[Rfam]
RNA: Bacillaceae-1 RNA
Organism: Alteribacillus bidgolensis
RNA sequence: UUUAAAUGACGUUCGCGCUAACUUCCUUACGUCGUGUGAGAACGCCGAACUGGCUUGCCCUGGAUG
Numbered sequence: 001u002u003u004a005a006a007u008g009a010c011g012u013u014c015g016c017g018c019u020a021a022c023u024u025c026c027u028u029a030c031g032u033c034g035u036g037u038g039a040g041a042a043c044g045c046c047g048a049a050c051u052g053g054c055u056u057g058c059c060c061u062g063g064a065u066g
Base pairs, nucleotide, nucleotide: 011050012049013048014047015046017045018044026040027039028038029037030036054066056064058062